Small nucleolar RNA SNORD116: a 93-nucleotide RNA sequence from Fukomys damarensis.
Lineage of the source: Eukaryota > Deuterostomia > Teleostomi > Bathyergidae > Fukomys.

RNA sequence: GGAUCGAUGACGAUACCCCAAAAACAUUCCUUGGAAAAGCUGAACAAAAUGAGUGAGGACUCUAAACCAUCGUUCUCAUCGUGACUGAGGUCC
Numbered sequence: 001g002g003a004u005c006g007a008u009g010a011c012g013a014u015a016c017c018c019c020a021a022a023a024a025c026a027u028u029c030c031u032u033g034g035a036a037a038a039g040c041u042g043a044a045c046a047a048a049a050u051g052a053g054u055g056a057g058g059a060c061u062c063u064a065a066a067c068c069a070u071c072g073u074u075c076u077c078a079u080c081g082u083g084a085c086u087g088a089g090g091u092c093c
Stems, first nucleotide, its partner, number of pairs: 001093005025055005031047003
Dot-bracket structure: (((((...................(((((.(((...........)))...))))).................................)))))
Gene Ontology terms of the family: RNA processing and nucleolus. A search with the family's covariance model found it, with a score of 92 bits. By type it is a C/D-box small nucleolar RNA.